[Rfam]
RNA sequence: CAUGCCUUAAAUAAAUACCCAAUACAUUCAUGAUAUGUAGCAAUAUUGUGAGAGAAUAUUUAUAUAGGCUAAAUAAAUUUUUAUCAGUGAUAAAACGGGUUAAAAAAAUUUACAAACAUUUUUGACUCACCUGACACUGGCACACCCACAUAUGCACUU
Numbered sequence: 001c002a003u004g005c006c007u008u009a010a011a012u013a014a015a016u017a018c019c020c021a022a023u024a025c026a027u028u029c030a031u032g033a034u035a036u037g038u039a040g041c042a043a044u045a046u047u048g049u050g051a052g053a054g055a056a057u058a059u060u061u062a063u064a065u066a067g068g069c070u071a072a073a074u075a076a077a078u079u080u081u082u083a084u085c086a087g088u089g090a091u092a093a094a095a096c097g098g099g100u101u102a103a104a105a106a107a108a109u110u111u112a113c114a115a116a117c118a119u120u121u122u123u124g125a126c127u128c129a130c131c132u133g134a135c136a137c138u139g140g141c142a143c144a145c146c147c148a149c150a151u152a153u154g155c156a157c158u159u
Stems, first nucleotide, its partner, number of pairs: 021158001023156001025154003028150001
The record is a 159-nucleotide RNA sequence from Plasmodium yoelii, which matches "small nucleolar RNA snoR26" in Rfam. On this family, see Chakrabarti et al., RNA 2007: "Structural RNAs of known and unknown function identified in malaria parasites by comparative genomics and RNA analysis". Taxonomically the source falls in Plasmodium yoelii (Eukaryota, Alveolata, Apicomplexa, Plasmodium). Pairs were carried over by alignment from the consensus structure. Gene Ontology terms of the family: nucleolus and RNA processing. The match comes from Rfam's covariance-model search (53 bits).